[Rfam]
RNA: mir-8799 microRNA precursor family
Organism: Vulpes vulpes
RNA sequence: GGGGGGAGCGCAGGAUCCUGGGCUAUGUCCCCGGACGCCCUGGGAUCCGGGGCCUGUGCCGCUGGAAUCACGCUCCCAGGGCGCGCAGCCCCCU
Number, nucleotide and partner (000 for none) at each position: 001g094002g093003g092004g091005g090006g089007a000008g000009c000010g086011c085012a000013g082014g000015a000016u000017c080018c079019u000020g076021g075022g074023c000024u072025a000026u070027g069028u066029c065030c000031c064032c061033g060034g059035a000036c058037g057038c056039c000040c000041u000042g054043g000044g053045a000046u051047c000048c000049g000050g000051g046052g000053c044054c042055u000056g038057u037058g036059c034060c033061g032062c000063u000064g031065g029066a028067a000068u000069c027070a026071c000072g024073c000074u022075c021076c020077c000078a000079g018080g017081g000082c013083g000084c000085g011086c010087a000088g000089c006090c005091c004092c003093c002094u001